[Rfam]
RNA sequence: CCCUGACAGCUGCAUCCCGUAGCUGACAAUAGCCAAGACAGGAGAAUUUACAUG
Numbered sequence: 001c002c003c004u005g006a007c008a009g010c011u012g013c014a015u016c017c018c019g020u021a022g023c024u025g026a027c028a029a030u031a032g033c034c035a036a037g038a039c040a041g042g043a044g045a046a047u048u049u050a051c052a053u054g
Stems, first nucleotide, its partner, number of pairs: 002042004007025005

Source information:
Shown here is a 54-nucleotide RNA sequence, a member of the family "Mu-gpT-DE RNA". It is annotated as a small RNA. The sequence is in the family's curated seed alignment. The family's consensus secondary structure is taken from published work.